Overview: This 86-nucleotide RNA from Desulfosporosinus orientis belongs to the Rfam family "c-di-GMP-I-GGC riboswitch aptamer". Lineage of the source: Bacteria > Clostridia > Eubacteriales > Desulfosporosinus > Desulfosporosinus orientis. The family is grouped with related families in Rfam's "c-di-GMP_I riboswitch clan".
RNA sequence: UGCGAUAAAGGCAAACUCCGCGAAAGCUGGGGACGCAAAGCCACGGGUCUUAGCAUGAUUGGGUGAAGACAGCCGGGUUACCGAAA
Numbered sequence: 001u002g003c004g005a006u007a008a009a010g011g012c013a014a015a016c017u018c019c020g021c022g023a024a025a026g027c028u029g030g031g032g033a034c035g036c037a038a039a040g041c042c043a044c045g046g047g048u049c050u051u052a053g054c055a056u057g058a059u060u061g062g063g064u065g066a067a068g069a070c071a072g073c074c075g076g077g078u079u080a081c082c083g084a085a086a
Stems, first nucleotide, its partner, number of pairs: 001086001003083002011036002016031003020027002034072001039079004044075003047070005
Dot-bracket structure: (.((......((...(((.((....)).)))..[))..((((.((((((((..............))))).])))))))..))..)